Rfam assigns this 62-nucleotide RNA sequence from Sorex araneus to the family "U7 small nuclear RNA". Rfam describes the family as follows. Animal histone pre-mRNAs are spliced by a different mechanism than nuclear pre-mRNAs and self-splicing introns.
RNA sequence: CAGUGUUAUAGCUCUUUUAGAAUUUGUCUAGCAGGUUUUCCGGUUGCUACCAGAAAGCCAAG
Numbered sequence: 001c002a003g004u005g006u007u008a009u010a011g012c013u014c015u016u017u018u019a020g021a022a023u024u025u026g027u028c029u030a031g032c033a034g035g036u037u038u039u040c041c042g043g044u045u046g047c048u049a050c051c052a053g054a055a056a057g058c059c060a061a062g
Stems, first nucleotide, its partner, number of pairs: 034059007042051003